c-di-AMP riboswitch aptamer (ydaO/yuaA leader): a 203-nucleotide RNA sequence from Cyanomargarita calcarea. The organism belongs to Cyanomargarita calcarea, within Bacteria. It scores 78 bits against the family's covariance model. On this family, see Barrick et al., Proc Natl Acad Sci U S A 2004: "New RNA motifs suggest an expanded scope for riboswitches in bacterial genetic control".

[Rfam]
RNA sequence: AAAGUAAGUCAGCCUAAUCCAGCGGGUUCAGCAAUCGCUGGAGCGGAGGAACCAUAAAUUGGGGCGAAUCUCACAGUAUCACAGGUUUGGGAGUUAUGAGUCGAAAAUUAUAAACUCAUAUCAUCUAUUUCCUGAAUAUUAGAGAAGGGCAUCUCUCAGCCCUAGCCCGUCAGCUAACUUCGCAGGCAUUGAGAGGAGACUGU
Numbered sequence: 001a002a003a004g005u006a007a008g009u010c011a012g013c014c015u016a017a018u019c020c021a022g023c024g025g026g027u028u029c030a031g032c033a034a035u036c037g038c039u040g041g042a043g044c045g046g047a048g049g050a051a052c053c054a055u056a057a058a059u060u061g062g063g064g065c066g067a068a069u070c071u072c073a074c075a076g077u078a079u080c081a082c083a084g085g086u087u088u089g090g091g092a093g094u095u096a097u098g099a100g101u102c103g104a105a106a107a108u109u110a111u112a113a114a115c116u117c118a119u120a121u122c123a124u125c126u127a128u129u130u131c132c133u134g135a136a137u138a139u140u141a142g143a144g145a146a147g148g149g150c151a152u153c154u155c156u157c158a159g160c161c162c163u164a165g166c167c168c169g170u171c172a173g174c175u176a177a178c179u180u181c182g183c184a185g186g187c188a189u190u191g192a193g194a195g196g197a198g199a200c201u202g203u
Stems, first nucleotide, its partner, number of pairs: 012187003018042008043183006053061002062168003070144003147162004